[Rfam]
RNA sequence: GUGAUCCGUACACACAAUCCGCAAGGCAGAAGCGGGGGAACCAACUUCGGGCCCGUCAAGAUUUUUGGGUCCUUGGGGUUAAGUCACACCGAAGCCAUUGGCUGGAGUGGGGCCGGAUGUCUCCCAUCCGAACCCGACAGCUCACCUCGUAGGCGCAGGGAGGAAAA
Numbered sequence: 001g002u003g004a005u006c007c008g009u010a011c012a013c014a015c016a017a018u019c020c021g022c023a024a025g026g027c028a029g030a031a032g033c034g035g036g037g038g039a040a041c042c043a044a045c046u047u048c049g050g051g052c053c054c055g056u057c058a059a060g061a062u063u064u065u066u067g068g069g070u071c072c073u074u075g076g077g078g079u080u081a082a083g084u085c086a087c088a089c090c091g092a093a094g095c096c097a098u099u100g101g102c103u104g105g106a107g108u109g110g111g112g113c114c115g116g117a118u119g120u121c122u123c124c125c126a127u128c129c130g131a132a133c134c135c136g137a138c139a140g141c142u143c144a145c146c147u148c149g150u151a152g153g154c155g156c157a158g159g160g161a162g163g164a165a166a167a
Base pairs, nucleotide, nucleotide: 005030006029032150033149034148035147036146037145042075043074076135077134078133084112085111087109088108089107115129116128117127118126